RNA sequence: AAACUCAAUUGGCUUGUACCAGAGAAAGCAGGUGCGAAUCGCUUAAUAUCCUGCCGAGGUCAGCGCCCUAUAUAUCUGCCGUGCCAUGGGCAUUCUAUGUGAAUGGCGUAGCACUUAAGAUAUAAAGCGCAACCCCGGCAUGGUGUCCGGGGUUUUGUGUUGGUUAU
Numbered sequence: 001a002a003a004c005u006c007a008a009u010u011g012g013c014u015u016g017u018a019c020c021a022g023a024g025a026a027a028g029c030a031g032g033u034g035c036g037a038a039u040c041g042c043u044u045a046a047u048a049u050c051c052u053g054c055c056g057a058g059g060u061c062a063g064c065g066c067c068c069u070a071u072a073u074a075u076c077u078g079c080c081g082u083g084c085c086a087u088g089g090g091c092a093u094u095c096u097a098u099g100u101g102a103a104u105g106g107c108g109u110a111g112c113a114c115u116u117a118a119g120a121u122a123u124a125a126a127g128c129g130c131a132a133c134c135c136c137g138g139c140a141u142g143g144u145g146u147c148c149g150g151g152g153u154u155u156u157g158u159g160u161u162g163g164u165u166a167u
Base pairs, nucleotide, nucleotide: 028054029053030052031051032050034042035041036040133152134151135150136149137148138147
Rfam assigns this 167-nucleotide sequence from Coleofasciculus sp. LEGE 07092 to the family "Ribosomal protein L10 leader". On this family, see Zengel and Lindahl, Prog Nucleic Acid Res Mol Biol 1994: "Diverse mechanisms for regulating ribosomal protein synthesis in Escherichia coli". Rfam classes the family as a cis-regulatory leader. NCBI's taxonomy places the organism under Bacteria, Cyanobacteriota, Cyanophyceae, Coleofasciculaceae, Coleofasciculus.